Rfam assigns this 89-nucleotide RNA sequence from Ligilactobacillus pobuzihii to the family "SAM-III riboswitch aptamer (SMK box)". A reference for the family is Fuchs et al. (2007), "S-adenosylmethionine directly inhibits binding of 30S ribosomal subunits to the SMK box translational riboswitch RNA", Proc Natl Acad Sci U S A. Its family is annotated with methionine adenosyltransferase activity and regulation of translational initiation in the Gene Ontology. The source organism's lineage runs through Bacteria, Bacillati, Bacillota, Lactobacillales and Ligilactobacillus.

RNA sequence: UAGCGUUACAACUCAUUCCCGAAAGGAUUCAUAUUUGAUGAAGAUGCCUUGUAACCAAUUAUUAAAUAGAUAGUGGGGGAAUUACAUUG
Number, nucleotide and partner (000 for none) at each position: 001u000002a000003g000004c000005g000006u000007u000008a000009c000010a000011a000012c000013u000014c000015a000016u081017u080018c079019c078020c077021g000022a000023a050024a049025g048026g047027a000028u042029u041030c040031a039032u038033a000034u000035u000036u000037g000038a032039u031040g030041a029042a028043g000044a000045u000046g000047c026048c025049u024050u023051g000052u000053a000054a000055c076056c075057a000058a000059u000060u000061a000062u000063u000064a000065a000066a000067u000068a000069g000070a000071u000072a000073g000074u000075g056076g055077g020078g019079g018080a017081a016082u000083u000084a000085c000086a000087u000088u000089g000